This 67-nucleotide RNA sequence belongs to the Rfam family "RAGATH-18 RNA".
The family's RNA type in Rfam is small RNA.
Actinobacteria, Firmicutes, Fusobacteria, Thermotogae (1 example).
[Rfam]
Nucleotides: 067
Base pairs, nucleotide, nucleotide: 001065002064003063004062009054010053011052012051013050022049023048024047030042031041032040
Number, partner (000 for none) and nucleotide at each position: 001065c002064c003063c004062u005000c006000g007000g008000a009054g010053a011052g012051u013050u014000a015000u016000a017000u018000c019000a020000a021000a022049c023048u024047c025000a026000a027000g028000u029000a030042g031041c032040a033000g034000u035000a036000a037000u038000a039000u040032u041031g042030u043000g044000a045000a046000a047024g048023a049022g050013g051012a052011c053010u054009c055000g056000u057000u058000g059000a060000a061000c062004a063003g064002g065001g066000a067000a